[Rfam]
RNA sequence: GGGGCAUUAGCUCAGUUGAUAGAGCGCAGCAUUCGCAUUGCUGAGGUCGCGAGUUUGACUCUCGCAUGCUCCA
Numbered sequence: 001g002g003g004g005c006a007u008u009a010g011c012u013c014a015g016u017u018g019a020u021a022g023a024g025c026g027c028a029g030c031a032u033u034c035g036c037a038u039u040g041c042u043g044a045g046g047u048c049g050c051g052a053g054u055u056u057g058a059c060u061c062u063c064g065c066a067u068g069c070u071c072c073a
Stems, first nucleotide, its partner, number of pairs: 001072007010025004027043005049065005